[Rfam]
RNA sequence: CCCGCGGAAGGACGGAAAGACCCCGUGCACCUUUACUAUAGCUUGACAUUGAUUUUUGGAUUAAUUUGUGUAGGAUAGGCGGGAGGCUUUGAAGUCACGGCGCUAGCUGUGAUGGAGCCAACCUUGAAAUACCGCCCUUAUUGGUUUGAAAAUCUAACUUUGUCCCGUAAUCCGGGUAGAAGACAGUGUCUGGUGGGUAGUUUGACUGGGGUGGUCGCCUCCUAAAUUGUAACGGAGGCGUUCAAAGGUUCCCUCAUGACGAAUAGAAAUCGUCUGUAGAGCGCAAAGGCAAAAGGGAGCUUGACUGUGAGACAUACAGGUCGAACAGGUGCGAAAGCAGGACUUAGUGAUCCAGUGGUUCCACAUGGAAGGGCCAUUGCUAAACGGAUAAAAGGUACGCCGGGGAUAACAGGCUGAUCUCCUCUGAGAGUCCACAUCGACGAGGAGGUUUGGCACCUCGAUGUCGGAUCAUCGCAUCCUGGGGGCGGAGAAGUUCCCAAGGGUUUGGCUGUUCGCCAAUUAAAGCGGUACGUGAUCUGGGUUCAGAACGUCGCAAGACAGUUCGGUCCUUAUCCUCCGUGGGCGCA
Numbered sequence: 001c002c003c004g005c006g007g008a009a010g011g012a013c014g015g016a017a018a019g020a021c022c023c024c025g026u027g028c029a030c031c032u033u034u035a036c037u038a039u040a041g042c043u044u045g046a047c048a049u050u051g052a053u054u055u056u057u058g059g060a061u062u063a064a065u066u067u068g069u070g071u072a073g074g075a076u077a078g079g080c081g082g083g084a085g086g087c088u089u090u091g092a093a094g095u096c097a098c099g100g101c102g103c104u105a106g107c108u109g110u111g112a113u114g115g116a117g118c119c120a121a122c123c124u125u126g127a128a129a130u131a132c133c134g135c136c137c138u139u140a141u142u143g144g145u146u147u148g149a150a151a152a153u154c155u156a157a158c159u160u161u162g163u164c165c166c167g168u169a170a171u172c173c174g175g176g177u178a179g180a181a182g183a184c185a186g187u188g189u190c191u192g193g194u195g196g197g198u199a200g201u202u203u204g205a206c207u208g209g210g211g212u213g214g215u216c217g218c219c220u221c222c223u224a225a226a227u228u229g230u231a232a233c234g235g236a237g238g239c240g241u242u243c244a245a246a247g248g249u250u251c252c253c254u255c256a257u258g259a260c261g262a263a264u265a266g267a268a269a270u271c272g273u274c275u276g277u278a279g280a281g282c283g284c285a286a287a288g289g290c291a292a293a294a295g296g297g298a299g300c301u302u303g304a305c306u307g308u309g310a311g312a313c314a315u316a317c318a319g320g321u322c323g324a325a326c327a328g329g330u331g332c333g334a335a336a337g338c339a340g341g342a343c344u345u346a347g348u349g350a351u352c353c354a355g356u357g358g359u360u361c362c363a364c365a366u367g368g369a370a371g372g373g374c375c376a377u378u379g380c381u382a383a384a385c386g387g388a389u390a391a392a393a394g395g396u397a398c399g400c401c402g403g404g405g406a407u408a409a410c411a412g413g414c415u416g417a418u419c420u421c422c423u424c425u426g427a428g429a430g431u432c433c434a435c436a437u438c439g440a441c442g443a444g445g446a447g448g449u450u451u452g453g454c455a456c457c458u459c460g461a462u463g464u465c466g467g468a469u470c471a472u473c474g475c476a477u478c479c480u481g482g483g484g485g486c487g488g489a490g491a492a493g494u495u496c497c498c499a500a501g502g503g504u505u506u507g508g509c510u511g512u513u514c515g516c517c518a519a520u521u522a523a524a525g526c527g528g529u530a531c532g533u534g535a536u537c538u539g540g541g542u543u544c545a546g547a548a549c550g551u552c553g554c555a556a557g558a559c560a561g562u563u564c565g566g567u568c569c570u571u572a573u574c575c576u577c578c579g580u581g582g583g584c585g586c587a
Base pairs, nucleotide, nucleotide: 001583002582003581004580005579006578007577008576010575011574012573014570015569022404023403024402025401027400028399029396030395031394032393033392035201036200037199038198042193043192045190046189047188048187051154052153053152054151055150056149057148058147059146060145061144062143063142064141065140068137078136079135080134081133082132085119086118087117094113095112096111097110098109099108100107101106159180160179164176165175166174167173204216205215206214207213217239218238219237220236221235222234240385242342243341248300249299250298251297252296253295254280255279258274259273260272261271262270281290282289305328306327307326308325311322312321313320330339331338332337353379354378355377356376357375358374359373361372362371413454414453415452417451418448419447420446421445422444423443424442428438429437465540466538467537468536469535470532471529472528473527474526475525478503479502481498482497483496484495485494486493505519506518507517508516509515546564547563548562549561550559551558552557
RNA: Bacterial large subunit ribosomal RNA, nucleotides 2144 to 2730
Organism: Vermiphilus pyriformis